Twister_sister_ribozyme: an 81-nucleotide RNA sequence.
RNA sequence: GUAGUCUCCCAGAUCCUGUCCCGUGAAAGCCGGGACUAGAGAGCCCUUAAAAGCUCUCUACGAUGCUUAUAAAGACUAAUU
Dot-bracket structure: ...((((.....((([.(.(((......]..))).)((((((((........)))))))).)))........)))).....
Numbered sequence: 001g002u003a004g005u006c007u008c009c010c011a012g013a014u015c016c017u018g019u020c021c022c023g024u025g026a027a028a029g030c031c032g033g034g035a036c037u038a039g040a041g042a043g044c045c046c047u048u049a050a051a052a053g054c055u056c057u058c059u060a061c062g063a064u065g066c067u068u069a070u071a072a073a074g075a076c077u078a079a080u081u
Stems, first nucleotide, its partner, number of pairs: 004076004013064003016029001018036001020034003037060008

On this family, see Weinberg et al., Nat Chem Biol 2015: "New classes of self-cleaving ribozymes revealed by comparative genomics analysis".